[Rfam]
RNA sequence: AGAGGUUUCAGGUUUGAGGCUAUAGCAGAAGAGCUUACAGCACAGUCCUGUCAGAUUCCAACAAAUCUGAGAAUUCUGCU
Dot-bracket structure: ...............[.[[[[..((((((((.(.......).)]]]]]...((((((......))))))....)))))))
Numbered sequence: 001a002g003a004g005g006u007u008u009c010a011g012g013u014u015u016g017a018g019g020c021u022a023u024a025g026c027a028g029a030a031g032a033g034c035u036u037a038c039a040g041c042a043c044a045g046u047c048c049u050g051u052c053a054g055a056u057u058c059c060a061a062c063a064a065a066u067c068u069g070a071g072a073a074u075u076c077u078g079c080u
Stems, first nucleotide, its partner, number of pairs: 016048001018047004024080007031043001033041001052069006
A member of the RNA family "Mammalian CPEB3 ribozyme" from Crocodylus porosus, 80 nucleotides long. From the family's description: The mammalian CPEB3 ribozyme is a self cleaving RNA located in the second intron of the CPEB3 gene which belongs to a family of genes regulating messenger RNA polyadenylation. Rfam links the family to the GO term RNA nuclease activity.